This 532-nucleotide part of an RNA from Natronoarchaeum philippinense belongs to the Rfam family "Archaeal large subunit ribosomal RNA".
[Rfam]
RNA sequence: CUACGACGCCGGCUGGUGAAUGGCUCGGCUCGAGAGCUGAAGACGGACGUGCCAAGCUGCGAUAAGCCUGUGGGAGCCGCACGGAGGCGAAGAACACAGGAUCUCCGAAUGGGAAUCCCCUCGCAAUUGCUGUGCGCAAUGGGGAACGUCGGGAAUUGAAACAUCUUAGUACCGACAGGAAUAGAACGCAAACCGCGAUGUCGUCAGUAACCGCGAGUGAACGCGACACAGUCCAAACCGAAGCCCUUACGGGCAAUGUGGUGUUCGGACUGACACUCAUCGCAUGACCCACUUCGAGAAAUCUUCUGGAACGAAGUACGAUACAGGGUGACAGUCCCGUAUCGAAGUGCAGUAUUGCGUGCGUCAGCUCCAGAGUAGCGGGGGUUGGAUAUCCCUCGUGAAUAUCUCAGGCAUCGACUGAGAAGACUAAACACUCCUCGAGACCGAUAGCGAACAAGUAGCGUGAGCGAACGCUGAAAAGCACCCCGAGAAGGGAGGUGCAAUAGGGCCUGAACUCAGUCGGCCACUGAGC
Numbered sequence: 001c002u003a004c005g006a007c008g009c010c011g012g013c014u015g016g017u018g019a020a021u022g023g024c025u026c027g028g029c030u031c032g033a034g035a036g037c038u039g040a041a042g043a044c045g046g047a048c049g050u051g052c053c054a055a056g057c058u059g060c061g062a063u064a065a066g067c068c069u070g071u072g073g074g075a076g077c078c079g080c081a082c083g084g085a086g087g088c089g090a091a092g093a094a095c096a097c098a099g100g101a102u103c104u105c106c107g108a109a110u111g112g113g114a115a116u117c118c119c120c121u122c123g124c125a126a127u128u129g130c131u132g133u134g135c136g137c138a139a140u141g142g143g144g145a146a147c148g149u150c151g152g153g154a155a156u157u158g159a160a161a162c163a164u165c166u167u168a169g170u171a172c173c174g175a176c177a178g179g180a181a182u183a184g185a186a187c188g189c190a191a192a193c194c195g196c197g198a199u200g201u202c203g204u205c206a207g208u209a210a211c212c213g214c215g216a217g218u219g220a221a222c223g224c225g226a227c228a229c230a231g232u233c234c235a236a237a238c239c240g241a242a243g244c245c246c247u248u249a250c251g252g253g254c255a256a257u258g259u260g261g262u263g264u265u266c267g268g269a270c271u272g273a274c275a276c277u278c279a280u281c282g283c284a285u286g287a288c289c290c291a292c293u294u295c296g297a298g299a300a301a302u303c304u305u306c307u308g309g310a311a312c313g314a315a316g317u318a319c320g321a322u323a324c325a326g327g328g329u330g331a332c333a334g335u336c337c338c339g340u341a342u343c344g345a346a347g348u349g350c351a352g353u354a355u356u357g358c359g360u361g362c363g364u365c366a367g368c369u370c371c372a373g374a375g376u377a378g379c380g381g382g383g384g385u386u387g388g389a390u391a392u393c394c395c396u397c398g399u400g401a402a403u404a405u406c407u408c409a410g411g412c413a414u415c416g417a418c419u420g421a422g423a424a425g426a427c428u429a430a431a432c433a434c435u436c437c438u439c440g441a442g443a444c445c446g447a448u449a450g451c452g453a454a455c456a457a458g459u460a461g462c463g464u465g466a467g468c469g470a471a472c473g474c475u476g477a478a479a480a481g482c483a484c485c486c487c488g489a490g491a492a493g494g495g496a497g498g499u500g501c502a503a504u505a506g507g508g509c510c511u512g513a514a515c516u517c518a519g520u521c522g523g524c525c526a527c528u529g530a531g532c
Base pairs, nucleotide, nucleotide: 008524009523010522011521012520013519014518015517016516022510023474024473027445028444029442030441031440032439033438034437035435036434044107045106046105047104048061049060050059067100068099069098070097071096072095076088077087078086111120112119113118126140127139128138129137130136147178148176149175150174151173152172158165159164188196189195200227201226202225203224204223210218211217230428231427232426233425238261239260240259243254244253245252246251271366272365273364274363281359282358283357284356295344296343297342301317303316304315305314306313320324326338327337328336378399379398380397381396382395383394384393406422407421408420409419410418461468462467
A search with the family's covariance model found it, with a score of 2756 bits.